[Rfam]
RNA sequence: CGGGUGCUGGACCUGCCAGCACCACAGCCGGCUUCUGUGCUGCACCUGUGACUGAGGCCAGGGCGCAGAGGAAGGGGCUAUUCCUACGCUCAGCGCCCCGAGCAGUGGGCACUGGGAAUGGUUUGUAGCCUGACAUGC
Numbered sequence: 001c002g003g004g005u006g007c008u009g010g011a012c013c014u015g016c017c018a019g020c021a022c023c024a025c026a027g028c029c030g031g032c033u034u035c036u037g038u039g040c041u042g043c044a045c046c047u048g049u050g051a052c053u054g055a056g057g058c059c060a061g062g063g064c065g066c067a068g069a070g071g072a073a074g075g076g077g078c079u080a081u082u083c084c085u086a087c088g089c090u091c092a093g094c095g096c097c098c099c100g101a102g103c104a105g106u107g108g109g110c111a112c113u114g115g116g117a118a119u120g121g122u123u124u125g126u127a128g129c130c131u132g133a134c135a136u137g138c
Stems, first nucleotide, its partner, number of pairs: 004064002007061004024049004076130003084121003089116002095110004
Notes
A member of the RNA family "Small nucleolar RNA SNORA43" from Pipistrellus kuhlii, 138 nucleotides long. Rfam 15.1 lists 492 matches to the family in 142 species. The match comes from Rfam's covariance-model search (102 bits). Its family is annotated with RNA processing and nucleolus in the Gene Ontology. The family's consensus secondary structure was predicted with RNAfold. ACA43 is a member of the H/ACA class of snoRNA that guide the sites of modification of uridines to pseudouridines. The family's RNA type in Rfam is H/ACA-box small nucleolar RNA.